RNA sequence: UAACUAAACCAUGAACGUCACACAUACACCGUCACGUUCAGCCUGGGUGCUCGCUGGUUUCAGUGGGUUGGCUGGCGGGGUGUAUGGAGGCCCAAC
Number, nucleotide and partner (000 for none) at each position: 001u000002a000003a000004c000005u000006a000007a000008a000009c000010c000011a000012u000013g000014a000015a000016c000017g000018u000019c000020a000021c000022a000023c086024a085025u084026a083027c082028a081029c080030c079031g000032u000033c000034a000035c077036g076037u075038u000039c074040a073041g072042c071043c070044u000045g000046g000047g000048u000049g068050c067051u066052c065053g064054c000055u000056g000057g000058u000059u000060u000061c000062a000063g000064u053065g052066g051067g050068u049069u000070g043071g042072c041073u040074g039075g037076c036077g035078g000079g030080g029081u028082g027083u026084a025085u024086g023087g000088a000089g000090g000091c000092c000093c000094a000095a000096c000